[Rfam]
Nucleotides: 061
Base pairs, nucleotide, nucleotide: 001059002058003057004056005055006054007053010050012048013047014046015045016044017043019041020040021039022038
Number, partner (000 for none) and nucleotide at each position: 001059u002058c003057u004056u005055c006054a007053u008000u009000u010050c011000c012048c013047g014046u015045g016044c017043u018000c019041u020040c021039u022038c023000g024000c025000c026000u027000c028000u029000u030000u031000g032000a033000c034000c035000g036000g037000u038022g039021a040020g041019a042000u043017a044016g045015u046014a047013c048012g049000u050010g051000a052000a053007a054006u055005g056004a057003a058002g059001a060000a061000a

This 61-nucleotide RNA sequence from Pristionchus pacificus belongs to the Rfam family "mir-8364 microRNA precursor family".
The family has 13 seed sequences and 3,320 matches in Rfam 15.1.
Rfam links the family to the GO terms miRNA-mediated post-transcriptional gene silencing and RISC complex.
The organism belongs to Pristionchus, within Eukaryota.
It scores 69 bits against the family's covariance model.